[Rfam]
RNA sequence: UAUUAGGUUGGUGCAAAACUAAUAGCUGUUUUUGUCGUUACUUGUAAUGGCAGAAACAGCUAUUAGUUUUGCACCAACCUAAUA
Numbered sequence: 001u002a003u004u005a006g007g008u009u010g011g012u013g014c015a016a017a018a019c020u021a022a023u024a025g026c027u028g029u030u031u032u033u034g035u036c037g038u039u040a041c042u043u044g045u046a047a048u049g050g051c052a053g054a055a056a057c058a059g060c061u062a063u064u065a066g067u068u069u070u071g072c073a074c075c076a077a078c079c080u081a082a083u084a
Base pairs, nucleotide, nucleotide: 001084002083003082004081005080006079007078008077009076010075011074012073013072014071015070016069017068018067019066020065021064022063023062024061025060026059027058028057029056030055031054032053033052034051035050036049037048038047039046040045
The record is an 84-nucleotide RNA from Hipposideros armiger, which matches "mir-548 microRNA precursor family" in Rfam. For this family Rfam cites "Ultra-high throughput sequencing-based small RNA discovery and discrete statistical biomarker analysis in a collection of cervical tumours and matched controls" (Witten et al., BMC Biol, 2010). The match comes from Rfam's covariance-model search (93 bits). NCBI's taxonomy places the organism under Eukaryota, Craniata, Amniota, Theria, Hipposideros.